[Rfam]
RNA sequence: GUUGGGUUGAGUGGUGUUGACCUGUAAGCUAAACUUCUGAGCAACUGAAUGUAGAACAAUAUGAGCUAUGAGAUUCUGAUUUAGGAUCUACUUAUGUAGAGAGUCGGUCUUAUUCAAGUAUUGAGUUAACAUUGGUUAAGGGAUGUAGGUUCCUUGACAAGGUUAUUAACGAAGUGGGUAAUGCGUGAGGCUGGUAACAGAGCAGCGAAAACCACUCGCUUGAUACGGUGAUUGAGAUAGCUGGCUUGAGUAAGUGACUAAUUCUGCUUAUAGUAAUAGUUAUUGGACGAAAUUCUU
Numbered sequence: 001g002u003u004g005g006g007u008u009g010a011g012u013g014g015u016g017u018u019g020a021c022c023u024g025u026a027a028g029c030u031a032a033a034c035u036u037c038u039g040a041g042c043a044a045c046u047g048a049a050u051g052u053a054g055a056a057c058a059a060u061a062u063g064a065g066c067u068a069u070g071a072g073a074u075u076c077u078g079a080u081u082u083a084g085g086a087u088c089u090a091c092u093u094a095u096g097u098a099g100a101g102a103g104u105c106g107g108u109c110u111u112a113u114u115c116a117a118g119u120a121u122u123g124a125g126u127u128a129a130c131a132u133u134g135g136u137u138a139a140g141g142g143a144u145g146u147a148g149g150u151u152c153c154u155u156g157a158c159a160a161g162g163u164u165a166u167u168a169a170c171g172a173a174g175u176g177g178g179u180a181a182u183g184c185g186u187g188a189g190g191c192u193g194g195u196a197a198c199a200g201a202g203c204a205g206c207g208a209a210a211a212c213c214a215c216u217c218g219c220u221u222g223a224u225a226c227g228g229u230g231a232u233u234g235a236g237a238u239a240g241c242u243g244g245c246u247u248g249a250g251u252a253a254g255u256g257a258c259u260a261a262u263u264c265u266g267c268u269u270a271u272a273g274u275a276a277u278a279g280u281u282a283u284u285g286g287a288c289g290a291a292a293u294u295c296u297u
Stems, first nucleotide, its partner, number of pairs: 001045003004023007028042003047295004052290001054288001057285005065274007076266001078264002081261003087257002091254005097248001101247008109236002112233001114231003118226009127165004132160003136157009173216005182209001184207003191200003
This 297-nucleotide RNA from Piromyces finnis belongs to the Rfam family "Metazoan signal recognition particle RNA".
Lineage of the source: Eukaryota > Neocallimastigomycota > Neocallimastigomycetes > Neocallimastigales > Piromyces.
The family is grouped with related families in Rfam's "SRP clan".
Rfam classes the family as a non-coding RNA gene.